[Rfam]
Rfam assigns this 86-nucleotide sequence from Buttiauxella agrestis to the family "sroB RNA".
Lineage of the source: Bacteria > Pseudomonadota > Gammaproteobacteria > Enterobacteriaceae > Buttiauxella agrestis.
The family's consensus secondary structure was predicted with LocARNA.
For this family Rfam cites "RNomics in Escherichia coli detects new sRNA species and indicates parallel transcriptional output in bacteria" (Vogel et al., Nucleic Acids Res, 2003).

RNA sequence: CAUCUGGUCGUUUAUUCGACCAGCAUAAUUACAACAAUAUAGAAAUUCCUCUUUGACGGGCCGAUAGCGAUAUUGGCCGUUUUUUU
Numbered sequence: 001c002a003u004c005u006g007g008u009c010g011u012u013u014a015u016u017c018g019a020c021c022a023g024c025a026u027a028a029u030u031a032c033a034a035c036a037a038u039a040u041a042g043a044a045a046u047u048c049c050u051c052u053u054u055g056a057c058g059g060g061c062c063g064a065u066a067g068c069g070a071u072a073u074u075g076g077c078c079g080u081u082u083u084u085u086u
Base pairs, nucleotide, nucleotide: 007020008019009018010017028038029037059078060077061076062075063074064073065072066071